[Rfam]
Nucleotides: 063
Stems, first nucleotide, its partner, number of pairs: 034060003037056004043050002
Number, partner (000 for none) and nucleotide at each position: 001000a002000a003000a004000u005000g006000g007000u008000a009000c010000g011000g012000g013000u014000c015000u016000u017000c018000u019000a020000g021000a022000a023000u024000u025000u026000g027000u028000c029000u030000a031000g032000c033000a034060g035059g036058u037056u038055u039054u040053c041000c042000a043050g044049u045000u046000u047000u048000g049044a050043c051000c052000a053040g054039a055038a056037a057000g058036a059035c060034c061000c062000c063000a